[Rfam]
RNA: Small nucleolar RNA U6-53/MBII-28
Organism: Mauremys mutica
RNA sequence: UUCCAUUUAUGAAAUGCCAUUAUAAUGCAAACAUCAGGAAAAUAUUUGAAUUUACAAUGGUUGACAAUGUGUUAUACAGCACAACUCUUAGAGGCAGUUCAAGGAGC
Numbered sequence: 001u002u003c004c005a006u007u008u009a010u011g012a013a014a015u016g017c018c019a020u021u022a023u024a025a026u027g028c029a030a031a032c033a034u035c036a037g038g039a040a041a042a043u044a045u046u047u048g049a050a051u052u053u054a055c056a057a058u059g060g061u062u063g064a065c066a067a068u069g070u071g072u073u074a075u076a077c078a079g080c081a082c083a084a085c086u087c088u089u090a091g092a093g094g095c096a097g098u099u100c101a102a103g104g105a106g107c
Stems, first nucleotide, its partner, number of pairs: 001106004040053004